Background:
Shown here is a 36-nucleotide RNA, a member of the family "DUF805b RNA". It scores 45 bits against the family's covariance model. The family's RNA type in Rfam is cis-regulatory element.

RNA sequence: AAGGAGCAUGCCGAAAAUCCUGUAAUAGAGUAAGCA
Dot-bracket structure: .((((....[[......))))............]].
Numbered sequence: 001a002a003g004g005a006g007c008a009u010g011c012c013g014a015a016a017a018u019c020c021u022g023u024a025a026u027a028g029a030g031u032a033a034g035c036a
Stems, first nucleotide, its partner, number of pairs: 002021004010035002
Pairs were carried over by alignment from the consensus structure, which is taken from published work.